[Rfam]
RNA sequence: UUGUCCCUGCGGUGCUCGUGACUUGGCCAUACAUUCUCUGAACCGAUGCUAUCGGCAUAAUGGUUGCGGGAGUGUGGAGCUGGAGUGAUCGUCACUUUGCUGACGAACCCGAUGCUCUUCGGAUCGCGACCACCUUGAACCUAAGGGUUCGAGAUGCCGGCCUAGACGGCACACGCGGGGCAUCU
Numbered sequence: 001u002u003g004u005c006c007c008u009g010c011g012g013u014g015c016u017c018g019u020g021a022c023u024u025g026g027c028c029a030u031a032c033a034u035u036c037u038c039u040g041a042a043c044c045g046a047u048g049c050u051a052u053c054g055g056c057a058u059a060a061u062g063g064u065u066g067c068g069g070g071a072g073u074g075u076g077g078a079g080c081u082g083g084a085g086u087g088a089u090c091g092u093c094a095c096u097u098u099g100c101u102g103a104c105g106a107a108c109c110c111g112a113u114g115c116u117c118u119u120c121g122g123a124u125c126g127c128g129a130c131c132a133c134c135u136u137g138a139a140c141c142u143a144a145g146g147g148u149u150c151g152a153g154a155u156g157c158c159g160g161c162c163u164a165g166a167c168g169g170c171a172c173a174c175g176c177g178g179g180g181c182a183u184c185u
Base pairs, nucleotide, nucleotide: 005180006179007178008177009176010175011174012172013171014170015169017168018167019166035154036153037152039151040150041149042148043147044146062131063130064129066127067126068125069124073121074120076118077117078116079115080114085108086107089106090105091104092103093102

A member of the RNA family "6S / SsrS RNA" from Bordetella hinzii, 185 nucleotides long.
A search with the family's covariance model found it, with a score of 82 bits.
By type it is a non-coding RNA gene.